[Rfam]
RNA sequence: GUGAAUGUUUGGCAAACUUUUUGAAAAAAAGGACGCAAAGCUAUGGGUCUAAAGAUUAUUUGAGCUAUGAUUGCCAGGCUGCUUUG
Numbered sequence: 001g002u003g004a005a006u007g008u009u010u011g012g013c014a015a016a017c018u019u020u021u022u023g024a025a026a027a028a029a030a031g032g033a034c035g036c037a038a039a040g041c042u043a044u045g046g047g048u049c050u051a052a053a054g055a056u057u058a059u060u061u062g063a064g065c066u067a068u069g070a071u072u073g074c075c076a077g078g079c080u081g082c083u084u085u086g
Stems, first nucleotide, its partner, number of pairs: 012036002017031006039080004044076003047071003054065001056063002
The family of this 86-nucleotide sequence from Sporomusa malonica is "c-di-GMP-I riboswitch aptamer".
The match comes from Rfam's covariance-model search (66 bits).
NCBI's taxonomy places the organism under Bacteria, Bacillati, Negativicutes, Sporomusaceae, Sporomusa.
Rfam's curators write: GEMM was predicted in a large-scale screen for bacterial structured RNA regulatory elements. Genes associated with GEMM are involved in a diverse array of functions, including chemotaxis regulation, signal transduction, secretion and chitin.